[Rfam]
RNA sequence: AACAGCUGGGGAUCUUGUUAAAAUGCAGAUUCUGAUUCAGUAGGGGUCUGGGAUCCUGCACUUCUAACAAGCUCCCAGGUGAUGCGGA
Numbered sequence: 001a002a003c004a005g006c007u008g009g010g011g012a013u014c015u016u017g018u019u020a021a022a023a024u025g026c027a028g029a030u031u032c033u034g035a036u037u038c039a040g041u042a043g044g045g046g047u048c049u050g051g052g053a054u055c056c057u058g059c060a061c062u063u064c065u066a067a068c069a070a071g072c073u074c075c076c077a078g079g080u081g082a083u084g085c086g087g088a
Stems, first nucleotide, its partner, number of pairs: 003081002009075003014071007021063002025059004031053003

A member of the RNA family "mir-544 microRNA precursor family" from Equus caballus, 88 nucleotides long. Lineage of the source: Eukaryota > Opisthokonta > Chordata > Boreoeutheria > Equus. The base pairs follow the family's consensus structure, which was predicted with RNAalifold.